Shown here is a 98-nucleotide RNA sequence from Mycolicibacterium confluentis, a member of the family "Mycobacterium sRNA Ms_AS-1".
Rfam classes the family as a small RNA.
The source organism's lineage runs through Bacteria, Bacillati, Actinomycetes, Mycobacteriales and Mycobacterium (subgen. Mycolicibacterium).
On this family, see Li et al., RNA 2013: "Identification of small RNAs in Mycobacterium smegmatis using heterologous Hfq".
The pairing is the family consensus, mapped onto this sequence.
RNA sequence: GUCGGGUUGGGGAUGAAAUGGUUGACCACGCCACCGAACACCGCCAGCGUGCGCUUGCCGUCCUGCACCAUCUGCACACCGCGGCUUCGGAAUUCCUU
Numbered sequence: 001g002u003c004g005g006g007u008u009g010g011g012g013a014u015g016a017a018a019u020g021g022u023u024g025a026c027c028a029c030g031c032c033a034c035c036g037a038a039c040a041c042c043g044c045c046a047g048c049g050u051g052c053g054c055u056u057g058c059c060g061u062c063c064u065g066c067a068c069c070a071u072c073u074g075c076a077c078a079c080c081g082c083g084g085c086u087u088c089g090g091a092a093u094u095c096c097u098u
Base pairs, nucleotide, nucleotide: 006039007038008037010035011034014033015032019028020027021026043054044053079090080089081088
Dot-bracket structure: .....(((.((..((...(((....)))...)))).)))...((........))........................(((......)))........